[Rfam]
RNA sequence: CGCUUUUUUCGCGCAGGCGGAGCUCGACCGCAAGCUGAAGUAAACGCCUACAUCGAUCAGCACCGAGACGUUUACGGGGUCGAGCCGAUCUGCAAGGUGUUGCAGGUCGCCCCG
Numbered sequence: 001c002g003c004u005u006u007u008u009u010c011g012c013g014c015a016g017g018c019g020g021a022g023c024u025c026g027a028c029c030g031c032a033a034g035c036u037g038a039a040g041u042a043a044a045c046g047c048c049u050a051c052a053u054c055g056a057u058c059a060g061c062a063c064c065g066a067g068a069c070g071u072u073u074a075c076g077g078g079g080u081c082g083a084g085c086c087g088a089u090c091u092g093c094a095a096g097g098u099g100u101u102g103c104a105g106g107u108c109g110c111c112c113c114g
Stems, first nucleotide, its partner, number of pairs: 017031004075114005086109002089106007
The family of this 114-nucleotide sequence from Ectothiorhodospiraceae bacterium 2226 is "ALIL pseudoknot". Lineage of the source: Bacteria > Pseudomonadati > Gammaproteobacteria > Chromatiales > Ectothiorhodospiraceae. By type it is a cis-regulatory element. Pairs were carried over by alignment from the consensus structure, which is taken from published work.